[Rfam]
RNA sequence: CUUAAAAACCUCAUUGAGUGCAGCGUUGAUGAUACUGUCGUCGCUUUUCGCGGGAUGUCGUCUCAUUAACGCUGCAUUCAAUAAUGUUUUUA
Numbered sequence: 001c002u003u004a005a006a007a008a009c010c011u012c013a014u015u016g017a018g019u020g021c022a023g024c025g026u027u028g029a030u031g032a033u034a035c036u037g038u039c040g041u042c043g044c045u046u047u048u049c050g051c052g053g054g055a056u057g058u059c060g061u062c063u064c065a066u067u068a069a070c071g072c073u074g075c076a077u078u079c080a081a082u083a084a085u086g087u088u089u090u091u092a
Stems, first nucleotide, its partner, number of pairs: 006089004011084001013082016030065003
About this RNA
Shown here is a 92-nucleotide RNA from Sesamum indicum, a member of the family "MIR397 microRNA precursor family". Pairs were carried over by alignment from the consensus structure, which was predicted with WAR. The organism belongs to Sesamum, within Eukaryota. Gene Ontology terms of the family: miRNA-mediated post-transcriptional gene silencing and RISC complex.